[Rfam]
RNA sequence: CUCAAGCAGUGAUGAUGAUGGCUUCAUGUCAUACCCUGAAUGCUCCCUGUGGGUUAAAAGUCACUAUCUCAUCUGAGCUUGAA
Dot-bracket structure: .((((((.....................................................................)))))).

This 83-nucleotide RNA from Triplophysa rosa belongs to the Rfam family "Small nucleolar RNA SNORD11B". The source organism's lineage runs through Eukaryota, Metazoa, Ostariophysi, Cobitoidei and Triplophysa. The family's RNA type in Rfam is C/D-box small nucleolar RNA. Clan: SNORD11 clan. The family's consensus secondary structure was predicted with WAR. A search with the family's covariance model found it, with a score of 53 bits. Gene Ontology terms of the family: RNA processing and nucleolus. Rfam 15.1 lists 733 matches to the family in 632 species.